A member of the RNA family "SAM riboswitch aptamer (S box leader)" from Centipeda flueggei, 107 nucleotides long.
Gene Ontology term of the family: regulation of gene expression.
The organism belongs to Centipeda flueggei, within Bacteria.
RNA sequence: ACCUCAUCCAGAGCAGCGGAGGGAAUGGCCCGAUGAAGCUGCGGCAACCAUGGCAAUGUGUGCCAACGGUGCCAAUUCCUAUAGGCGGAGCGCCUAUGAGAUGAGAG
Numbered sequence: 001a002c003c004u005c006a007u008c009c010a011g012a013g014c015a016g017c018g019g020a021g022g023g024a025a026u027g028g029c030c031c032g033a034u035g036a037a038g039c040u041g042c043g044g045c046a047a048c049c050a051u052g053g054c055a056a057u058g059u060g061u062g063c064c065a066a067c068g069g070u071g072c073c074a075a076u077u078c079c080u081a082u083a084g085g086c087g088g089a090g091c092g093c094c095u096a097u098g099a100g101a102u103g104a105g106a107g
Stems, first nucleotide, its partner, number of pairs: 003105006013042005021031003027079002043073004048069002051065004077099001082096006